This 332-nucleotide sequence from Anaplasma marginale belongs to the Rfam family "Alphaproteobacteria transfer-messenger RNA". Rfam links the family to the GO term RNA catabolic process. The family's consensus secondary structure is taken from published work. Rfam's curators write: Bacterial tmRNA, also known as 10Sa RNA or SsrA, is named for its dual tRNA and mRNA-like properties. Its role is to liberate the mRNA from a stalled ribosome. To accomplish this part of the tmRNA is used as a reading frame that ends in a translation stop signal. The sequence is in the family's curated seed alignment. Clan: tRNA clan.

[Rfam]
RNA sequence: GUGCUUGACUUCCGCGCCCAUUGGUAAUACAAUCUGCCCGUGGUUUCACUAUGGCAAUAAAGGCCUCUUGGAAUAGGCGUUUUGGACCCGAGGGCAGUGCUCGGCAUCUCCACUGUUGCUUUGUAUGGGGAUGAAACAGGAUAGACAGACGCAAUAAAGAGGACGGCGUUUGCUCGGUGGGAAUUCCAGCCGUAUAAGUGGGUCAUUUUUAUAAGUGCAAACGAUGAUUUCGUUGCCGCUAAUGAUAACAUGGAAACAGCUUUCGUAGCUGCUGCCUAGUUUUUGUCUUUAGCGCGGUUUUGGGGGCUUACCGGGCAACAGAAAAGCCCCCG
Dot-bracket structure: .......................................(((....)))...(((((.....(((((((........(((..((...(((((.......)))))(((((((...............)))))))............)).)))........)))).)))..)))))((((..[[..[[[.)))).......]]]]]..........................................................................................[[[[....((((((.]]]]...........))))))..